[Rfam]
RNA sequence: GACUUAGUAUGUCAUGCAAGAUUAAGCCGAUAGGUGUAGUCGAAGCGAAAGCGAGUCUUAAUAGGGCGAUUUAGUAUGACGUAUUAGACCCGAAACCGAGUGAUCUAGUUAUGGGCAGGUUGAAGGUGCAGUAACAUGCACUGGAGGACCGAACCCACUUAUGUUGAAAAAUGAGGGGAUGACCUGUGACUAGGGGUGAAAGGCCAAUCAAACUCGGAGAUAGCUGGUU
Dot-bracket structure: ....(((((((((((((..((((..(((....)))..))))...((....))..((((.....))))......)))))))))))))..((.(...((((((...((((((((((((.((((...((((((......))))))....))))...(((.(((((........))))))))..).))))))))))).(((.....)))......))))))......).))..
Numbered sequence: 001g002a003c004u005u006a007g008u009a010u011g012u013c014a015u016g017c018a019a020g021a022u023u024a025a026g027c028c029g030a031u032a033g034g035u036g037u038a039g040u041c042g043a044a045g046c047g048a049a050a051g052c053g054a055g056u057c058u059u060a061a062u063a064g065g066g067c068g069a070u071u072u073a074g075u076a077u078g079a080c081g082u083a084u085u086a087g088a089c090c091c092g093a094a095a096c097c098g099a100g101u102g103a104u105c106u107a108g109u110u111a112u113g114g115g116c117a118g119g120u121u122g123a124a125g126g127u128g129c130a131g132u133a134a135c136a137u138g139c140a141c142u143g144g145a146g147g148a149c150c151g152a153a154c155c156c157a158c159u160u161a162u163g164u165u166g167a168a169a170a171a172u173g174a175g176g177g178g179a180u181g182a183c184c185u186g187u188g189a190c191u192a193g194g195g196g197u198g199a200a201a202g203g204c205c206a207a208u209c210a211a212a213c214u215c216g217g218a219g220a221u222a223g224c225u226g227g228u229u
Stems, first nucleotide, its partner, number of pairs: 005086013020041004026035003045052002055067004089227002092224001096217006105193011116181001118150004125142006154178003158175005195205003
Bacterial large subunit ribosomal RNA: a 229-nucleotide part of an RNA from Paremcibacter congregatus. Pairs were carried over by alignment from the consensus structure, which is taken from published work. It scores 2768 bits against the family's covariance model. NCBI's taxonomy places the organism under Bacteria, Pseudomonadota, Alphaproteobacteria, Emcibacterales, Paremcibacter.